[Rfam]
RNA sequence: CUGCCGCUGUGUCCUAUGGCUUUUUAUUCCUAUAUGAUGUCAGAUUGGGCUCAUGUAGGGAUAGAAGCCACUUAACACACGGUGA
Dot-bracket structure: .(((((..((((....(((((((..((((((((((((.............)))))))))))).)))))))....)))).))))).
Numbered sequence: 001c002u003g004c005c006g007c008u009g010u011g012u013c014c015u016a017u018g019g020c021u022u023u024u025u026a027u028u029c030c031u032a033u034a035u036g037a038u039g040u041c042a043g044a045u046u047g048g049g050c051u052c053a054u055g056u057a058g059g060g061a062u063a064g065a066a067g068c069c070a071c072u073u074a075a076c077a078c079a080c081g082g083u084g085a
Stems, first nucleotide, its partner, number of pairs: 002084005009078004017070007026062012